[Rfam]
RNA sequence: AGCCACGCGUUGAGCACUGAGCGAACUAUUCCUUCGCCUAUUACUAAAGAAUACUGUGUGCACAUCACAAAUAGUGGCAUACGCCUAUUUUUGGAGGGGUUUCUUCUCUUGGAGAAU
Numbered sequence: 001a002g003c004c005a006c007g008c009g010u011u012g013a014g015c016a017c018u019g020a021g022c023g024a025a026c027u028a029u030u031c032c033u034u035c036g037c038c039u040a041u042u043a044c045u046a047a048a049g050a051a052u053a054c055u056g057u058g059u060g061c062a063c064a065u066c067a068c069a070a071a072u073a074g075u076g077g078c079a080u081a082c083g084c085c086u087a088u089u090u091u092u093g094g095a096g097g098g099g100u101u102u103c104u105u106c107u108c109u110u111g112g113a114g115a116a117u
Base pairs, nucleotide, nucleotide: 003077004076005075006074009066011064012063014061015060016059017058027053028052029051030050031049033047034046095117101116102115103114104113105112106111
Rfam assigns this 117-nucleotide sequence from Quercus lobata to the family "U5 spliceosomal RNA". The family has 180 seed sequences and 28,527 matches in Rfam 15.1. Rfam describes the family as follows. U5 RNA is a component of both types of known spliceosome. Rfam links the family to the GO terms spliceosomal tri-snRNP complex assembly and U5 snRNP.